[Rfam]
RNA sequence: CCCGCGCCUAGCCCGACGGGGCGAAAACGCCGGACACCCUGCCGGCGCUGGUGCGGGGACUAUUCAGGGG
Numbered sequence: 001c002c003c004g005c006g007c008c009u010a011g012c013c014c015g016a017c018g019g020g021g022c023g024a025a026a027a028c029g030c031c032g033g034a035c036a037c038c039c040u041g042c043c044g045g046c047g048c049u050g051g052u053g054c055g056g057g058g059a060c061u062a063u064u065c066a067g068g069g070g
Stems, first nucleotide, its partner, number of pairs: 001057008011022004028047005037070004
Description
The record is a 70-nucleotide sequence from Pseudoxanthomonas taiwanensis, which matches "int-alpA RNA" in Rfam. Rfam describes the family as follows. Acidobacteria (1 example), Planctomycetes (1 example), Proteobacteria. It scores 59 bits against the family's covariance model. The family has 167 seed sequences and 577 matches in Rfam 15.1.